Rfam assigns this 94-nucleotide RNA from Medicago truncatula to the family "MIR2587 microRNA precursor family". Rfam 15.1 lists 242 matches to the family in 3 species. A reference for the family is Lelandais-Briere et al. (2009), "Genome-wide Medicago truncatula small RNA analysis revealed novel microRNAs and isoforms differentially regulated in roots and nodules", Plant Cell. It scores 89 bits against the family's covariance model. NCBI's taxonomy places the organism under Eukaryota, Embryophyta, Mesangiospermae, Pentapetalae, Medicago.
[Rfam]
RNA sequence: GUGUCAUGGUCAUUGUUGUCCGUUCAUAUGAACCCUGCAAUUGCAUUGUAGUUUGUGUGAGAUUCAUAUAACGGUCAACAGAGGCCCUUGACAU
Numbered sequence: 001g002u003g004u005c006a007u008g009g010u011c012a013u014u015g016u017u018g019u020c021c022g023u024u025c026a027u028a029u030g031a032a033c034c035c036u037g038c039a040a041u042u043g044c045a046u047u048g049u050a051g052u053u054u055g056u057g058u059g060a061g062a063u064u065c066a067u068a069u070a071a072c073g074g075u076c077a078a079c080a081g082a083g084g085c086c087c088u089u090g091a092c093a094u
Base pairs, nucleotide, nucleotide: 001094002093003092004091005090006089008086009085010084011083013081014080015079016078017077018076020074021073022072023071024070026069027068028067029066030065031064032063034061036059037058038057039056043052